The family of this 119-nucleotide RNA sequence from Nitratireductor sp. StC3 is "Alphaproteobacterial ar15". Its family is annotated with protein binding in the Gene Ontology. It scores 40 bits against the family's covariance model.
RNA sequence: AGAAGUCGCUCAUCGGGUCUUUACCUCCCGUUUUGACCCCGUGGGUGUUCUCCUCUGGAGGUCUUGCCCGGAAAGGCACUUCCAAGCUUCGGGCCGGAUCGCGAGAUCCGGCCAUUUUU
Numbered sequence: 001a002g003a004a005g006u007c008g009c010u011c012a013u014c015g016g017g018u019c020u021u022u023a024c025c026u027c028c029c030g031u032u033u034u035g036a037c038c039c040c041g042u043g044g045g046u047g048u049u050c051u052c053c054u055c056u057g058g059a060g061g062u063c064u065u066g067c068c069c070g071g072a073a074a075g076g077c078a079c080u081u082c083c084a085a086g087c088u089u090c091g092g093g094c095c096g097g098a099u100c101g102c103g104a105g106a107u108c109c110g111g112c113c114a115u116u117u118u119u
Stems, first nucleotide, its partner, number of pairs: 001046001007043003015039004056084007092113009
Dot-bracket structure: (.....(((.....((((.................)))).)))..).........(((((((...............))))))).......(((((((((....)))))))))......
The family has 61 seed sequences and 316 matches in Rfam 15.1.